Shown here is a 117-nucleotide RNA from Brevibacterium sp. CS2, a member of the family "ALIL pseudoknot".
RNA sequence: GGCUUUCUUCGCGGCGGAGCUCGACCGCCCAUCAAGGUGAUCGUCGACUUCAUCGACGAGAAUCGUGACGAGUUCGGAGUCGAGCCGAUCGUGCGGGUCCUGCGCGGGACUGCUGCA
Numbered sequence: 001g002g003c004u005u006u007c008u009u010c011g012c013g014g015c016g017g018a019g020c021u022c023g024a025c026c027g028c029c030c031a032u033c034a035a036g037g038u039g040a041u042c043g044u045c046g047a048c049u050u051c052a053u054c055g056a057c058g059a060g061a062a063u064c065g066u067g068a069c070g071a072g073u074u075c076g077g078a079g080u081c082g083a084g085c086c087g088a089u090c091g092u093g094c095g096g097g098u099c100c101u102g103c104g105c106g107g108g109a110c111u112g113c114u115g116c117a
Stems, first nucleotide, its partner, number of pairs: 013029005076116001078114002086112002089109002092106004
Its family is annotated with positive regulation of translational frameshifting in the Gene Ontology. Rfam classes the family as a cis-regulatory element.